[Rfam]
RNA: Termite-leu RNA
RNA sequence: AGUAGCCGGUAAGGGCACGGAGUUCCUUUUUAGGAAAAUCUGCAGCCUUUACCGGGUUUCUCAAGUUCUGGAGUGGGGAAAACCCAUUCACAGGAUUGGUAUAUAGGAGG
Numbered sequence: 001a002g003u004a005g006c007c008g009g010u011a012a013g014g015g016c017a018c019g020g021a022g023u024u025c026c027u028u029u030u031u032a033g034g035a036a037a038a039u040c041u042g043c044a045g046c047c048u049u050u051a052c053c054g055g056g057u058u059u060c061u062c063a064a065g066u067u068c069u070g071g072a073g074u075g076g077g078g079a080a081a082a083c084c085c086a087u088u089c090a091c092a093g094g095a096u097u098g099g100u101a102u103a104u105a106g107g108a109g110g
Stems, first nucleotide, its partner, number of pairs: 006055010061099002064097007071089006